[Rfam]
RNA: Group II catalytic intron D1-D4-3
Organism: Microbulbifer sp. THAF38
RNA sequence: AACACCGUGAGGUCUUGUGGGGAGGAAGCCGUUAGCAAAUACGAGCUGACGAACAGAAACAUCCUAUAAGGCUUAGCCUGGAGGCGAGGUGGCCAAGGACACCGAAGCCAUGUCAUCUAACGGGUAGAGUCAAUGAUGCACUUGUGUAGUGAAAGUUCACACU
Numbered sequence: 001a002a003c004a005c006c007g008u009g010a011g012g013u014c015u016u017g018u019g020g021g022g023a024g025g026a027a028g029c030c031g032u033u034a035g036c037a038a039a040u041a042c043g044a045g046c047u048g049a050c051g052a053a054c055a056g057a058a059a060c061a062u063c064c065u066a067u068a069a070g071g072c073u074u075a076g077c078c079u080g081g082a083g084g085c086g087a088g089g090u091g092g093c094c095a096a097g098g099a100c101a102c103c104g105a106a107g108c109c110a111u112g113u114c115a116u117c118u119a120a121c122g123g124g125u126a127g128a129g130u131c132a133a134u135g136a137u138g139c140a141c142u143u144g145u146g147u148a149g150u151g152a153a154a155g156u157u158c159a160c161a162c163u
Base pairs, nucleotide, nucleotide: 001016002015004013005012006011028163031160032159035156036155040148041147042146043145044143045142047140048139060138061137062136063135065133071130072129073128076125077124078123079122080121083109084108085107088103089102090101091100